[Rfam]
RNA: Ribosomal protein L10 leader
RNA sequence: AACAAUUUCAUAGCAAAGCCAGAGACAGCGGGUGCCCAGAGCUUAAUUUCCUGCCGAGGUUUUCGUCUUGUAUUUUCGGAGUGUCAGUGUUGCCUUGUACAGCACUGAUAGCCAAUUUACAGCGUGACCCCGGCUUCGAGUCCGGGGUUUUUUGAUCUUACC
Numbered sequence: 001a002a003c004a005a006u007u008u009c010a011u012a013g014c015a016a017a018g019c020c021a022g023a024g025a026c027a028g029c030g031g032g033u034g035c036c037c038a039g040a041g042c043u044u045a046a047u048u049u050c051c052u053g054c055c056g057a058g059g060u061u062u063u064c065g066u067c068u069u070g071u072a073u074u075u076u077c078g079g080a081g082u083g084u085c086a087g088u089g090u091u092g093c094c095u096u097g098u099a100c101a102g103c104a105c106u107g108a109u110a111g112c113c114a115a116u117u118u119a120c121a122g123c124g125u126g127a128c129c130c131c132g133g134c135u136u137c138g139a140g141u142c143c144g145g146g147g148u149u150u151u152u153u154g155a156u157c158u159u160a161c162c
Stems, first nucleotide, its partner, number of pairs: 028054005034042002128147006135140001